mir-21 microRNA precursor family: a 70-nucleotide RNA from Clupea harengus.
Taxonomically the source falls in Clupea (Eukaryota, Eumetazoa, Gnathostomata, Clupeoidei).
The base pairs follow the family's consensus structure, which was predicted with RNAalifold.
The match comes from Rfam's covariance-model search (69 bits).

[Rfam]
RNA sequence: AGUCAGAUAGCUUAUCAGACUGGUGUUGGCUGUGCUAUGAUGUCAACAGCGGUCUGUAAGCUGUCUGAAG
Numbered sequence: 001a002g003u004c005a006g007a008u009a010g011c012u013u014a015u016c017a018g019a020c021u022g023g024u025g026u027u028g029g030c031u032g033u034g035c036u037a038u039g040a041u042g043u044c045a046a047c048a049g050c051g052g053u054c055u056g057u058a059a060g061c062u063g064u065c066u067g068a069a070g
Base pairs, nucleotide, nucleotide: 008063009062010061011060012059013058014057015056018054019053020052021051022050024048025047026046027045028044030042